[Rfam]
RNA: MIR168 microRNA precursor family
RNA sequence: AUUGCGGCGGUCUCUAAUUCGCUUGGUGCAGGUCGGGAAUCAAGUUCCUCGUACAGAAAUUAUGGGCAUCUGAUAAUGUUAAUUCAUAUUACUAUAUGGUUUAUAAUUGAAGUCGAUUCUUUUAAGCGAGAAUUAGGUUCCCGCCUUGCAUCAACUGAAUCUGAGGCCGCGAUGAAU
Numbered sequence: 001a002u003u004g005c006g007g008c009g010g011u012c013u014c015u016a017a018u019u020c021g022c023u024u025g026g027u028g029c030a031g032g033u034c035g036g037g038a039a040u041c042a043a044g045u046u047c048c049u050c051g052u053a054c055a056g057a058a059a060u061u062a063u064g065g066g067c068a069u070c071u072g073a074u075a076a077u078g079u080u081a082a083u084u085c086a087u088a089u090u091a092c093u094a095u096a097u098g099g100u101u102u103a104u105a106a107u108u109g110a111a112g113u114c115g116a117u118u119c120u121u122u123u124a125a126g127c128g129a130g131a132a133u134u135a136g137g138u139u140c141c142c143g144c145c146u147u148g149c150a151u152c153a154a155c156u157g158a159a160u161c162u163g164a165g166g167c168c169g170c171g172a173u174g175a176a177u
Base pairs, nucleotide, nucleotide: 013164014163017160018159019158020157023154024153025152026151027150028149029148030147031146032145034143035142036141037140038139040137041136